[Rfam]
RNA sequence: AGGACCCAUUAGCAUUGGAUCCUAAUGCAGGACCCAUUAUCAUUGGGUCCUGGCGAAGGACCCAAGCGAAUUGGGUCCUGACACAGGAUCCAUUACAAUUGGGUCCU
Numbered sequence: 001a002g003g004a005c006c007c008a009u010u011a012g013c014a015u016u017g018g019a020u021c022c023u024a025a026u027g028c029a030g031g032a033c034c035c036a037u038u039a040u041c042a043u044u045g046g047g048u049c050c051u052g053g054c055g056a057a058g059g060a061c062c063c064a065a066g067c068g069a070a071u072u073g074g075g076u077c078c079u080g081a082c083a084c085a086g087g088a089u090c091c092a093u094u095a096c097a098a099u100u101g102g103g104u105c106c107u
Stems, first nucleotide, its partner, number of pairs: 001107008014094001016092008029079008043065008

Shown here is a 107-nucleotide RNA sequence from Populus trichocarpa, a member of the family "MIR6450 microRNA precursor family". The match comes from Rfam's covariance-model search (72 bits). Taxonomically the source falls in Populus (Eukaryota, Tracheophyta, Spermatophyta, Saliceae). Its family is annotated with miRNA-mediated post-transcriptional gene silencing and RISC complex in the Gene Ontology.